Description:
6S / SsrS RNA: a 179-nucleotide sequence from a BD1-7 clade bacterium. Pairs were carried over by alignment from the consensus structure, which is taken from published work. The match comes from Rfam's covariance-model search (104 bits). E. coli 6S RNA was the first non coding RNA to be sequenced, but its function was unknown until recently. It consists of 184 nucleotides that fold into an extended hairpin structure with a large single-stranded internal bulge. The 6S RNA specifically associates with RNA polymerase holoenzyme containing the sigma70 specificity factor.
RNA sequence: GACUUUCUUGGGUACUUGCCAGUAGGUGUUGUCCUCGAGCCGAUAAGUAAAUACCCAGGGGGCUUUGUCGGGAAAUGGUGUGCAUGUCCGCUUGACGGAAAGCCUGAUUUUUUCGCAUCGUCUCCGCCUUGAACCGUCGGGUUCAAGGGCUUAUCCUGCAGCGGUACUUAGGAAAGUCU
Numbered sequence: 001g002a003c004u005u006u007c008u009u010g011g012g013u014a015c016u017u018g019c020c021a022g023u024a025g026g027u028g029u030u031g032u033c034c035u036c037g038a039g040c041c042g043a044u045a046a047g048u049a050a051a052u053a054c055c056c057a058g059g060g061g062g063c064u065u066u067g068u069c070g071g072g073a074a075a076u077g078g079u080g081u082g083c084a085u086g087u088c089c090g091c092u093u094g095a096c097g098g099a100a101a102g103c104c105u106g107a108u109u110u111u112u113u114c115g116c117a118u119c120g121u122c123u124c125c126g127c128c129u130u131g132a133a134c135c136g137u138c139g140g141g142u143u144c145a146a147g148g149g150c151u152u153a154u155c156c157u158g159c160a161g162c163g164g165u166a167c168u169u170a171g172g173a174a175a176g177u178c179u
Stems, first nucleotide, its partner, number of pairs: 002177014017163003031150004037144005058125003062121002066117002069115005075110001082103002087099004